[Rfam]
RNA sequence: GCGGGAGUCGCCAAGUGGUAAGGCAUCAGCCUUCCAAGCUGACAUUCGCGGGUUCGAGUCCCGUCUCCCGCU
Numbered sequence: 001g002c003g004g005g006a007g008u009c010g011c012c013a014a015g016u017g018g019u020a021a022g023g024c025a026u027c028a029g030c031c032u033u034c035c036a037a038g039c040u041g042a043c044a045u046u047c048g049c050g051g052g053u054u055c056g057a058g059u060c061c062c063g064u065c066u067c068c069c070g071c072u
Stems, first nucleotide, its partner, number of pairs: 001071007010024003026042005048064005
Annotation:
The family of this 72-nucleotide RNA from Bellilinea caldifistulae is "tRNA". Lineage of the source: Bacteria > Bacillati > Chloroflexota > Anaerolineales > Bellilinea. It is annotated as a transfer RNA. Transfer RNA (tRNA) molecules are approximately 80 nucleotides in length. Their secondary structure includes four short double-helical elements and three loops (D, anti-codon, and T loops). Further hydrogen bonds mediate the characteristic L-shaped molecular structure. tRNAs have two regions of fundamental functional importance: the anti-codon, which is responsible for specific mRNA codon recognition, and the 3' end, to which the tRNAs corresponding amino acid is attached (by aminoacyl-tRNA synthetases). tRNAs cope with the degeneracy of the genetic code in two manners: having more than one tRNA (with a specific anti-codon) for a particular amino acid; and 'wobble' base-pairing, i.e. permitting non-standard base-pairing at the 3rd anti-codon position.